Shown here is a 154-nucleotide RNA from Paenibacillus silvestris, a member of the family "FMN riboswitch aptamer (RFN element)". For this family Rfam cites "Regulation of riboflavin biosynthesis and transport genes in bacteria by transcriptional and translational attenuation" (Vitreschak et al., Nucleic Acids Res, 2002). The organism belongs to Paenibacillus, within Bacteria.
[Rfam]
RNA sequence: UUGAAUCUUCGGGGCAGGGUGAAAUCCCCUACCGGCGGUGAGGAUACAAGCCAAUGUAUCUCAAGCCCGCGACUCCCGGCCUGUUAGGCAGGCGGGGACUGACUUGGUGAGAAUCCAAGGCCGACGGUUAUAGUCCGGAUGGGAGAAGGUGAAU
Numbered sequence: 001u002u003g004a005a006u007c008u009u010c011g012g013g014g015c016a017g018g019g020u021g022a023a024a025u026c027c028c029c030u031a032c033c034g035g036c037g038g039u040g041a042g043g044a045u046a047c048a049a050g051c052c053a054a055u056g057u058a059u060c061u062c063a064a065g066c067c068c069g070c071g072a073c074u075c076c077c078g079g080c081c082u083g084u085u086a087g088g089c090a091g092g093c094g095g096g097g098a099c100u101g102a103c104u105u106g107g108u109g110a111g112a113a114u115c116c117a118a119g120g121c122c123g124a125c126g127g128u129u130a131u132a133g134u135c136c137g138g139a140u141g142g143g144a145g146a147a148g149g150u151g152a153a154u
Stems, first nucleotide, its partner, number of pairs: 005150006017029003031134002033123002035070004065121002074098004103119005125137003